[Rfam]
RNA sequence: ACUUCAUGGUUAAGGCAUUGCAUGAGCUUGUCAUUAAACCUUUCCAAUACUUCAUACAAAGGCUCCUCGUUGAGUUGACAAAAAUUUAUAAUUUUAUCUUGCAAUU
Dot-bracket structure: (.((((..................................................(..(..........)..).........................)).)).)
A member of the RNA family "Plant small nucleolar RNA R71" from Capsicum annuum, 106 nucleotides long. It is annotated as a C/D-box small nucleolar RNA. A reference for the family is Brown et al. (2003), "Plant snoRNAs: functional evolution and new modes of gene expression", Trends Plant Sci. Lineage of the source: Eukaryota > Tracheophyta > Spermatophyta > Magnoliopsida > Capsicum. The match comes from Rfam's covariance-model search (44 bits). Rfam 15.1 lists 278,378 matches to the family in 216 species.